A member of the RNA family "mir-23 microRNA precursor family" from Oncorhynchus kisutch, 75 nucleotides long. The source organism's lineage runs through Eukaryota, Opisthokonta, Metazoa, Protacanthopterygii and Oncorhynchus. For this family Rfam cites "The developmental miRNA profiles of zebrafish as determined by small RNA cloning" (Chen et al., Genes Dev, 2005). The family has 83 seed sequences and 1,403 matches in Rfam 15.1.

RNA sequence: AGCCAGGGGGGUUCCUGGUGAAGUGAUUCUGGGACAUUCUGAACUCAAUCACAUUGCCAGGGAUUUCCAAUGGCU
Numbered sequence: 001a002g003c004c005a006g007g008g009g010g011g012u013u014c015c016u017g018g019u020g021a022a023g024u025g026a027u028u029c030u031g032g033g034a035c036a037u038u039c040u041g042a043a044c045u046c047a048a049u050c051a052c053a054u055u056g057c058c059a060g061g062g063a064u065u066u067c068c069a070a071u072g073g074c075u
Stems, first nucleotide, its partner, number of pairs: 001075001003073003009068002011064011023052006
Dot-bracket structure: (.(((...(((((((((((((.((((((..................)))))).)))))))))))..))..))).)